[Rfam]
RNA: Small nucleolar RNA snR191
Organism: Aspergillus mulundensis
RNA sequence: UGCCAUCGCUAAGUCAAGUCUACUUCUGUGACUCCGUGUCACGCUUUCUCAAUGGAAGUAUUGUCUGUUACAGCUUUGGCAUAUCAACGCUGGUCCGCGCCGAAUUUCAUUCUGAAGCUAGGCUGAUUGGCUUUCGUCUUGAAAGCUGAUCGUUAAGGACCGAGCAGUGUUCUGUUCGUGAGUUGAGUACUGCUUCGCCAUCGGCGUCUUCAUAGCAGCACUCUUAGUAACAUUUCACACAUCA
Numbered sequence: 001u002g003c004c005a006u007c008g009c010u011a012a013g014u015c016a017a018g019u020c021u022a023c024u025u026c027u028g029u030g031a032c033u034c035c036g037u038g039u040c041a042c043g044c045u046u047u048c049u050c051a052a053u054g055g056a057a058g059u060a061u062u063g064u065c066u067g068u069u070a071c072a073g074c075u076u077u078g079g080c081a082u083a084u085c086a087a088c089g090c091u092g093g094u095c096c097g098c099g100c101c102g103a104a105u106u107u108c109a110u111u112c113u114g115a116a117g118c119u120a121g122g123c124u125g126a127u128u129g130g131c132u133u134u135c136g137u138c139u140u141g142a143a144a145g146c147u148g149a150u151c152g153u154u155a156a157g158g159a160c161c162g163a164g165c166a167g168u169g170u171u172c173u174g175u176u177c178g179u180g181a182g183u184u185g186a187g188u189a190c191u192g193c194u195u196c197g198c199c200a201u202c203g204g205c206g207u208c209u210u211c212a213u214a215g216c217a218g219c220a221c222u223c224u225u226a227g228u229a230a231c232a233u234u235u236c237a238c239a240c241a242u243c244a
Base pairs, nucleotide, nucleotide: 003079004078005077017066018065020063021060022059023058024057025056026055028042029041030040031039032038090167091166092165094163095162099123100122101121103119105117106116107115108114124152125151126150130146131145132144133143134142135141136140169238170237173232174231175230185223186222187221188220191217192216193215194214197205198204